[Rfam]
RNA sequence: AUGCUGGCUUAGCAGUGUGGAUACUUUGUUGAGUGGUUCAUUGGUAGAACUUAAAGUUUGCGUCUUUAGAGAGUGGGUUCGAUUCCCACCUUGACACCAUCCGCACGCGCAAUCCAGCAUUUUA
Numbered sequence: 001a002u003g004c005u006g007g008c009u010u011a012g013c014a015g016u017g018u019g020g021a022u023a024c025u026u027u028g029u030u031g032a033g034u035g036g037u038u039c040a041u042u043g044g045u046a047g048a049a050c051u052u053a054a055a056g057u058u059u060g061c062g063u064c065u066u067u068a069g070a071g072a073g074u075g076g077g078u079u080c081g082a083u084u085c086c087c088a089c090c091u092u093g094a095c096a097c098c099a100u101c102c103g104c105a106c107g108c109g110c111a112a113u114c115c116a117g118c119a120u121u122u123u124a
Stems, first nucleotide, its partner, number of pairs: 002119006012108002017104004026082003

This 124-nucleotide RNA sequence from Acanthaster planci belongs to the Rfam family "Vault RNA". The family's consensus secondary structure is taken from published work. By type it is a non-coding RNA gene. Rfam's curators write: This family of RNAs are found as part of the enigmatic vault ribonucleoprotein complex. The complex consists of a major vault protein (MVP), two minor vault proteins (VPARP and TEP1), and several small untranslated RNA molecules. It has been suggested that the vault complex is involved in drug resistance.